[Rfam]
RNA sequence: GGGAGGUGUGAUCCCGUGCUUCCUGGGAGGUGUGAUCCCACACUCGCUGGGAGGUGUGAUCCUGCGUUCGCC
Numbered sequence: 001g002g003g004a005g006g007u008g009u010g011a012u013c014c015c016g017u018g019c020u021u022c023c024u025g026g027g028a029g030g031u032g033u034g035a036u037c038c039c040a041c042a043c044u045c046g047c048u049g050g051g052a053g054g055u056g057u058g059a060u061c062c063u064g065c066g067u068u069c070g071c072c
Stems, first nucleotide, its partner, number of pairs: 001072002003069003015058004020053007029044001031042004

mir-3689 microRNA precursor family: a 72-nucleotide RNA from Pongo abelii.